The record is a 165-nucleotide RNA, which matches "RAGATH-9 RNA" in Rfam. The sequence is in the family's curated seed alignment. The base pairs follow the family's consensus structure, which is taken from published work. A reference for the family is Weinberg et al. (2015), "New classes of self-cleaving ribozymes revealed by comparative genomics analysis", Nat Chem Biol.

RNA sequence: AAAGUCAAUCCCAAUCGCUAUAAACGACCAGAGCCCUAAUGUACUAGUCUAUAAGACUAGGUACAAUGGAACAUACUACGUUCAACCAUCAUUUGAUGUUCAAGAGAGUGAAGGAUAUGGGUCUCCUACAAAAUAAGGAGUACGAAUAUGUAGGUAGCGAUUUUU
Numbered sequence: 001a002a003a004g005u006c007a008a009u010c011c012c013a014a015u016c017g018c019u020a021u022a023a024a025c026g027a028c029c030a031g032a033g034c035c036c037u038a039a040u041g042u043a044c045u046a047g048u049c050u051a052u053a054a055g056a057c058u059a060g061g062u063a064c065a066a067u068g069g070a071a072c073a074u075a076c077u078a079c080g081u082u083c084a085a086c087c088a089u090c091a092u093u094u095g096a097u098g099u100u101c102a103a104g105a106g107a108g109u110g111a112a113g114g115a116u117a118u119g120g121g122u123c124u125c126c127u128a129c130a131a132a133a134u135a136a137g138g139a140g141u142a143c144g145a146a147u148a149u150g151u152a153g154g155u156a157g158c159g160a161u162u163u164u165u
Stems, first nucleotide, its partner, number of pairs: 013162007026123004040065002044060006069083004085100001087098004125154006
Dot-bracket structure: ............(((((((......((((..........((..((((((.....))))))...))...((((.......)))).(.((((....)))).)...................)))).((((((..................)))))).)))))))...